[Rfam]
RNA: FMN riboswitch aptamer (RFN element)
RNA sequence: AUUUAUUCUCAGGGCGGGGUGUAAUUCCCCACCGGCGGUAUAUAACGCAUUGUGACGUUAUCAGCCCGCGAGCGCUUGAUUUUCGGAUCAAGGUCAGCAGAUCUGGUGAGAUGCCAGAGCCGACAGUAAUAGUCUGGAUGGGAGAGGAUAUAU
Numbered sequence: 001a002u003u004u005a006u007u008c009u010c011a012g013g014g015c016g017g018g019g020u021g022u023a024a025u026u027c028c029c030c031a032c033c034g035g036c037g038g039u040a041u042a043u044a045a046c047g048c049a050u051u052g053u054g055a056c057g058u059u060a061u062c063a064g065c066c067c068g069c070g071a072g073c074g075c076u077u078g079a080u081u082u083u084c085g086g087a088u089c090a091a092g093g094u095c096a097g098c099a100g101a102u103c104u105g106g107u108g109a110g111a112u113g114c115c116a117g118a119g120c121c122g123a124c125a126g127u128a129a130u131a132g133u134c135u136g137g138a139u140g141g142g143a144g145a146g147g148a149u150a151u152a153u
Stems, first nucleotide, its partner, number of pairs: 004150007017029003031133002033122002035069004064120002072098002102118005124136003